About this RNA:
Eukaryotic large subunit ribosomal RNA: a 225-nucleotide part of an RNA from Colletotrichum abscissum. The source organism's lineage runs through Eukaryota, Fungi, Ascomycota, Colletotrichum and Colletotrichum acutatum species complex. It scores 2258 bits against the family's covariance model.

[Rfam]
Nucleotides: 225
Base pairs, nucleotide, nucleotide: 001207002206003205004204006202007201008200009199010198011197012196017067020066021065023063025061071189072188073187075185076184077183210225211224213222
Number, partner (000 for none) and nucleotide at each position: 001207c002206g003205c004204u005000u006202a007201u008200a009199a010198c011197u012196a013000g014000a015000c016000u017067u018000a019000c020066g021065u022000c023063c024000g025061g026000u027000a028000a029000a030000u031000c032000a033000c034000c035000c036000a037000g038000c039000u040000c041000u042000c043000g044000u045000a046000a047000c048000u049000a050000g051000g052000g053000c054000a055000c056000u057000u058000u059000a060000c061025u062000a063023g064000c065021a066020c067017a068000g069000g070000c071189u072188a073187g074000c075185a076184u077183u078000a079000g080000c081000u082000u083000a084000c085000c086000g087000u088000u089000a090000g091000g092000g093000a094000c095000a096000a097000a098000a099000g100000c101000u102000u103000u104000a105000a106000a107000a108000a109000c110000g111000u112000a113000g114000c115000u116000c117000c118000u119000c120000u121000c122000g123000g124000g125000g126000a127000g128000u129000a130000u131000u132000a133000u134000a135000g136000c137000c138000u139000a140000u141000u142000a143000u144000a145000u146000a147000a148000u149000a150000c151000c152000c153000u154000u155000c156000g157000g158000c159000g160000g161000g162000c163000u164000a165000a166000g167000g168000u169000a170000c171000g172000c173000g174000c175000u176000c177000c178000g179000c180000a181000a182000a183077g184076a185075u186000a187073c188072u189071a190000g191000u192000a193000u194000a195000a196012u197011a198010g199009u200008u201007a202006u203000u204004a205003g206002c207001g208000a209000c210225c211224c212000a213222u214000c215000u216000u217000a218000a219000a220000a221000c222213a223000c224211g225210g